[Rfam]
RNA: Y RNA-like
Organism: Sphingomonas aerophila
RNA sequence: ACGGCGAAUGCCGGCAGGACUACAUGGUGUCGCGGGUUCGAGUCCCGCCCCGCGCAAGCGGGUAGCUCAGCUGGGUAGAGCACAAACCGUCCUCCAUCACCUCGUCGCCGUAAU
Numbered sequence: 001a002c003g004g005c006g007a008a009u010g011c012c013g014g015c016a017g018g019a020c021u022a023c024a025u026g027g028u029g030u031c032g033c034g035g036g037u038u039c040g041a042g043u044c045c046c047g048c049c050c051c052g053c054g055c056a057a058g059c060g061g062g063u064a065g066c067u068c069a070g071c072u073g074g075g076u077a078g079a080g081c082a083c084a085a086a087c088c089g090u091c092c093u094c095c096a097u098c099a100c101c102u103c104g105u106c107g108c109c110g111u112a113a114u
Base pairs, nucleotide, nucleotide: 002110003109004108005107006106007105014095016093017092018091019090025084026083032048033047034046035045036044039075049062050061051060052059053058065081066080067079068078